[Rfam]
RNA sequence: GGGAGGUGUGAUCCCAUGCUCCCUGGGAGGUGUGAUCCCAUGCUCCCUGGGAGGUGUAUCCUUUGCUCCUU
Numbered sequence: 001g002g003g004a005g006g007u008g009u010g011a012u013c014c015c016a017u018g019c020u021c022c023c024u025g026g027g028a029g030g031u032g033u034g035a036u037c038c039c040a041u042g043c044u045c046c047c048u049g050g051g052a053g054g055u056g057u058a059u060c061c062u063u064u065g066c067u068c069c070u071u
Stems, first nucleotide, its partner, number of pairs: 001070005016057003020053001022051006029044001031042004
About this RNA
mir-3689 microRNA precursor family: a 71-nucleotide sequence from Pan paniscus. Its family is annotated with miRNA-mediated post-transcriptional gene silencing and RISC complex in the Gene Ontology. It scores 68 bits against the family's covariance model.